[Rfam]
RNA sequence: CCCAACCCUACAUACUUCUUCAUAUGCCCAUAUGGAGUCGGCCGGCAUUAUGGAAUGUUAAGAAGUAUGUGUUUUUGGG
Dot-bracket structure: ........((((((((((((.((((..(((((................))))).)))).))))))))))))........
RNA: mir-1 microRNA precursor family
Organism: Menura novaehollandiae